The record is a 96-nucleotide sequence, which matches "Small nucleolar RNA Z43" in Rfam. Its family is annotated with RNA processing and nucleolus in the Gene Ontology. Rfam's curators put it in the seed alignment. On this family, see Chen et al., Nucleic Acids Res 2003: "The high diversity of snoRNAs in plants: identification and comparative study of 120 snoRNA genes from Oryza sativa". Rfam classes the family as a C/D-box small nucleolar RNA.

RNA sequence: GACACUGAUGAAUACUGUGACAGGUCUCGUUCGUCGUAAUGGUAAAUUUUUACCUUGCCGACCAUUCUGUUAUAUCACCACCCAUAUUCUGAGUCU
Numbered sequence: 001g002a003c004a005c006u007g008a009u010g011a012a013u014a015c016u017g018u019g020a021c022a023g024g025u026c027u028c029g030u031u032c033g034u035c036g037u038a039a040u041g042g043u044a045a046a047u048u049u050u051u052a053c054c055u056u057g058c059c060g061a062c063c064a065u066u067c068u069g070u071u072a073u074a075u076c077a078c079c080a081c082c083c084a085u086a087u088u089c090u091g092a093g094u095c096u
Base pairs, nucleotide, nucleotide: 001096002094003093044056045055046051